[Rfam]
RNA sequence: ACACGAGAGAGGAGGUGGUCCAGAGGUGAAUUCCUACAGGACGCGUGAGGUGGCCACCCGCUAGCCGUCAGCGGACGGACCUGCCGGUCCUCCCGCCACGCGGCGGCGAGAACCAGGUGGUCACCGGAGCCCGCGGGGCCGUGAGCUCGUCCUACACGGCACCGGCCGAACGGCCGGACCCGUGGGCUCUUCCAC
Numbered sequence: 001a002c003a004c005g006a007g008a009g010a011g012g013a014g015g016u017g018g019u020c021c022a023g024a025g026g027u028g029a030a031u032u033c034c035u036a037c038a039g040g041a042c043g044c045g046u047g048a049g050g051u052g053g054c055c056a057c058c059c060g061c062u063a064g065c066c067g068u069c070a071g072c073g074g075a076c077g078g079a080c081c082u083g084c085c086g087g088u089c090c091u092c093c094c095g096c097c098a099c100g101c102g103g104c105g106g107c108g109a110g111a112a113c114c115a116g117g118u119g120g121u122c123a124c125c126g127g128a129g130c131c132c133g134c135g136g137g138g139c140c141g142u143g144a145g146c147u148c149g150u151c152c153u154a155c156a157c158g159g160c161a162c163c164g165g166c167c168g169a170a171c172g173g174c175c176g177g178a179c180c181c182g183u184g185g186g187c188u189c190u191u192c193c194a195c
Stems, first nucleotide, its partner, number of pairs: 014058006059108004065102001067101002072095003127189011139177003
RNA: Actinobacteria sRNA Ms_IGR-5
Organism: Georgenia muralis